Shown here is an 83-nucleotide RNA sequence from Aggregatibacter actinomycetemcomitans, a member of the family "Aggregatibacter sRNA 69".
The sequence is in the family's curated seed alignment.
It is annotated as a small RNA.
Lineage of the source: Bacteria > Pseudomonadati > Pseudomonadota > Gammaproteobacteria > Aggregatibacter actinomycetemcomitans.
The family's consensus secondary structure was predicted with RNAfold.

RNA sequence: UACAUGAUCCGUGCUUGAGGUUGCUAUUUUUUGAAAGACGAACAAUAAUAGUACGCGAAUACGCGGGAGUAAAUGCUUUUCUC
Numbered sequence: 001u002a003c004a005u006g007a008u009c010c011g012u013g014c015u016u017g018a019g020g021u022u023g024c025u026a027u028u029u030u031u032u033g034a035a036a037g038a039c040g041a042a043c044a045a046u047a048a049u050a051g052u053a054c055g056c057g058a059a060u061a062c063g064c065g066g067g068a069g070u071a072a073a074u075g076c077u078u079u080u081c082u083c
Base pairs, nucleotide, nucleotide: 009066010065011064012063013062016059019056022053023052024051025050026049027048028047031045032044033043067078068077069076070075